[Rfam]
RNA sequence: GACAGAGUAGGACCCUCUGCGUGAAGUGCUGCCAAAAUGGGGAGUUGUCUGGCAGACGAAGGAGUUUCUCCGCGAUAGAAGGUCCGCACCCGCUGUU
Numbered sequence: 001g002a003c004a005g006a007g008u009a010g011g012a013c014c015c016u017c018u019g020c021g022u023g024a025a026g027u028g029c030u031g032c033c034a035a036a037a038u039g040g041g042g043a044g045u046u047g048u049c050u051g052g053c054a055g056a057c058g059a060a061g062g063a064g065u066u067u068c069u070c071c072g073c074g075a076u077a078g079a080a081g082g083u084c085c086g087c088a089c090c091c092g093c094u095g096u097u
Base pairs, nucleotide, nucleotide: 001097002096003095004094005093010085011084012083013082014081016079017078018077019076020074021073022072026057027056029055030054031053032052033051034050036048040091041090042089044087061071062070063069064068
A member of the RNA family "THF (Tetrahydrofolate) riboswitch aptamer" from Firmicutes bacterium CAG:137, 97 nucleotides long. Its family is annotated with tetrahydrofolate metabolic process in the Gene Ontology. Pairs were carried over by alignment from the consensus structure, which is taken from published work. It scores 88 bits against the family's covariance model. The source organism's lineage runs through Bacteria, Bacillati and Bacillota. Tetrahydrofolate (THF) riboswitch was first reported for Ames et al. as an RNA motif in 5' untranslated (5'-UTR)regions of folate transport and biosynthesis genes in Firmicutes genomes.